[Rfam]
RNA sequence: UCUGAGUCGUCGGCCCCGACUCCCAGCCGUCCGCCCUGGCGCACCUUCCCCGGUGCCAGGUCGGGACGGAUGGGGAUCAGGGCAGAUGAACAGGAGCCG
Numbered sequence: 001u002c003u004g005a006g007u008c009g010u011c012g013g014c015c016c017c018g019a020c021u022c023c024c025a026g027c028c029g030u031c032c033g034c035c036c037u038g039g040c041g042c043a044c045c046u047u048c049c050c051c052g053g054u055g056c057c058a059g060g061u062c063g064g065g066a067c068g069g070a071u072g073g074g075g076a077u078c079a080g081g082g083c084a085g086a087u088g089a090a091c092a093g094g095a096g097c098c099g
Stems, first nucleotide, its partner, number of pairs: 010086002013083004018078002021075005027069004031064003035060008
Rfam assigns this 99-nucleotide RNA sequence from Frigoribacterium sp. Leaf172 to the family "mraW RNA". The source organism's lineage runs through Bacteria, Bacillati, Actinomycetes, Micrococcales and Frigoribacterium. Rfam classes the family as a cis-regulatory element. It scores 68 bits against the family's covariance model.